[Rfam]
RNA sequence: UAAUUAUUGAAUGAAGGGAAGAUGGGUGGACAAUGGAUAAAUAAUCUUAUUUUUUACGUUUUUGAAAUAGAAAAAAUUAUUUCAAACAAAAAAUAGGAUUAGUCUGCCCAUUUUCUAUAUUUACUAAGUUAUCUUUUACGAAAGAUAGCUUUAUUUAUCAUGAAACCAAAGGCUAAUCCUUCCGAAAAAUCGGGAGGAUUUUUUU
Numbered sequence: 001u002a003a004u005u006a007u008u009g010a011a012u013g014a015a016g017g018g019a020a021g022a023u024g025g026g027u028g029g030a031c032a033a034u035g036g037a038u039a040a041a042u043a044a045u046c047u048u049a050u051u052u053u054u055u056a057c058g059u060u061u062u063u064g065a066a067a068u069a070g071a072a073a074a075a076a077u078u079a080u081u082u083c084a085a086a087c088a089a090a091a092a093a094u095a096g097g098a099u100u101a102g103u104c105u106g107c108c109c110a111u112u113u114u115c116u117a118u119a120u121u122u123a124c125u126a127a128g129u130u131a132u133c134u135u136u137u138a139c140g141a142a143a144g145a146u147a148g149c150u151u152u153a154u155u156u157a158u159c160a161u162g163a164a165a166c167c168a169a170a171g172g173c174u175a176a177u178c179c180u181u182c183c184g185a186a187a188a189a190u191c192g193g194g195a196g197g198a199u200u201u202u203u204u205u
Stems, first nucleotide, its partner, number of pairs: 016116004023110004029104003042101013061086010128149007175200011
RNA: Bacillus sRNA ncr1575